Shown here is a 175-nucleotide RNA from Clostridium perfringens, a member of the family "Lysine riboswitch aptamer". The match comes from Rfam's covariance-model search (121 bits). Riboswitches are metabolite binding domains within certain messenger RNAs that serve as precision sensors for their corresponding targets.
RNA sequence: AACUGAGAUAGAGGCGCGAUGAUUAAUAGUAUCUUUGCAGAGGUAAGCACAUUGAAGCAAAGUGAAAGGAUGAAUCGCCGAAACCAUUAGAAGAGGCUUUAAUUCUAUUAGGUUGGGGUUGCAUAGAAUAUAUGUAACACUGUCACAAAUUAUUUUGUGGUGUGCUAUCAUGAAA
Numbered sequence: 001a002a003c004u005g006a007g008a009u010a011g012a013g014g015c016g017c018g019a020u021g022a023u024u025a026a027u028a029g030u031a032u033c034u035u036u037g038c039a040g041a042g043g044u045a046a047g048c049a050c051a052u053u054g055a056a057g058c059a060a061a062g063u064g065a066a067a068g069g070a071u072g073a074a075u076c077g078c079c080g081a082a083a084c085c086a087u088u089a090g091a092a093g094a095g096g097c098u099u100u101a102a103u104u105c106u107a108u109u110a111g112g113u114u115g116g117g118g119u120u121g122c123a124u125a126g127a128a129u130a131u132a133u134g135u136a137a138c139a140c141u142g143u144c145a146c147a148a149a150u151u152a153u154u155u156u157g158u159g160g161u162g163u164g165c166u167a168u169c170a171u172g173a174a175a
Stems, first nucleotide, its partner, number of pairs: 007169005016078005024070001033062006082114004086109001088107005115141002118138008143160007
Pairs were carried over by alignment from the consensus structure, which is taken from published work. The source organism's lineage runs through Bacteria, Bacillota, Clostridia, Clostridium and Clostridium perfringens.